Rfam assigns this 50-nucleotide RNA sequence from Caldovatus sediminis to the family "Guanidine-II riboswitch aptamer (mini-ykkC)". The source organism's lineage runs through Bacteria, Pseudomonadati, Acetobacterales, Roseomonadaceae and Caldovatus.
[Rfam]
RNA sequence: GGGCGAGGACGGCCUCGCUCGUUUCGGCGACAUCGGUGGGGACGGCCCUG
Numbered sequence: 001g002g003g004c005g006a007g008g009a010c011g012g013c014c015u016c017g018c019u020c021g022u023u024u025c026g027g028c029g030a031c032a033u034c035g036g037u038g039g040g041g042a043c044g045g046c047c048c049u050g
Stems, first nucleotide, its partner, number of pairs: 001020008037050005